Rfam assigns this 134-nucleotide sequence from Caenorhabditis auriculariae to the family "Caenorhabditis snoRNA ceN59".
The family has 3 seed sequences and 14 matches in Rfam 15.1.

RNA sequence: CCGGGACAGAUUGAGUUGAUCUUUUCCCAUUGAAAUCGGUCAAAUUGCUGUCCCAAAAUUGUAGAGAGCUGUCUCAUUAUUGAUUAUGAUUCCAUAUUUGGAGUUUUGAUUGUAUCGAAAUGGCUCCCACAUUU
Numbered sequence: 001c002c003g004g005g006a007c008a009g010a011u012u013g014a015g016u017u018g019a020u021c022u023u024u025u026c027c028c029a030u031u032g033a034a035a036u037c038g039g040u041c042a043a044a045u046u047g048c049u050g051u052c053c054c055a056a057a058a059u060u061g062u063a064g065a066g067a068g069c070u071g072u073c074u075c076a077u078u079a080u081u082g083a084u085u086a087u088g089a090u091u092c093c094a095u096a097u098u099u100g101g102a103g104u105u106u107u108g109a110u111u112g113u114a115u116c117g118a119a120a121u122g123g124c125u126c127c128c129a130c131a132u133u134u
Base pairs, nucleotide, nucleotide: 003054004053005052006051007050008049009048016043017042018041019040020039021038023035024034025033026032066126067125072118073117

Pairs were carried over by alignment from the consensus structure, which was predicted with WAR. For this family Rfam cites "Systematic identification of non-coding RNA 2,2,7-trimethylguanosine cap structures in Caenorhabditis elegans" (Jia et al., BMC Mol Biol, 2007). The match comes from Rfam's covariance-model search (56 bits).